A member of the RNA family "mir-34 microRNA precursor family" from Lottia gigantea, 68 nucleotides long. It is one of the family's seed sequences. Human mir-34a was discovered computationally and later experimentally verified. The mature sequence is excised from the 5' arm of the hairpin. The family's consensus secondary structure was predicted with RNAalifold.
RNA sequence: GUUCUGUGGCAGUGUGGUUAGCUGGUAGUUCAUGAUUUAAAACAACCACUAUCUACAUUGCCCCGAAA
Numbered sequence: 001g002u003u004c005u006g007u008g009g010c011a012g013u014g015u016g017g018u019u020a021g022c023u024g025g026u027a028g029u030u031c032a033u034g035a036u037u038u039a040a041a042a043c044a045a046c047c048a049c050u051a052u053c054u055a056c057a058u059u060g061c062c063c064c065g066a067a068a
Stems, first nucleotide, its partner, number of pairs: 002067003006063001008062002011059007019051003023048004028043003
Dot-bracket structure: .(((.(.((.(((((((.(((.((((.(((..........))).))))))).))))))).))).))).